[Rfam]
RNA: SAM riboswitch aptamer (S box leader)
Organism: Fictibacillus enclensis
RNA sequence: AGCUUAUCCAGAGCGGUGGAGGGAAAGGCCCGAUGAAACCCGGCAACCUUCAGGCAGAUUGUCUGAAAAGGUGCCAAGUCCUUCAAAGGUACAACUUUGAGCGAUAAGAG
Numbered sequence: 001a002g003c004u005u006a007u008c009c010a011g012a013g014c015g016g017u018g019g020a021g022g023g024a025a026a027g028g029c030c031c032g033a034u035g036a037a038a039c040c041c042g043g044c045a046a047c048c049u050u051c052a053g054g055c056a057g058a059u060u061g062u063c064u065g066a067a068a069a070g071g072u073g074c075c076a077a078g079u080c081c082u083u084c085a086a087a088g089g090u091a092c093a094a095c096u097u098u099g100a101g102c103g104a105u106a107a108g109a110g
Base pairs, nucleotide, nucleotide: 003108004107005106006105007104008103013041015040016039017038021031022030023029025083026082027081028080042075043074044073045072047071048070049067050066051065052064053063054062084099085098086097087096088095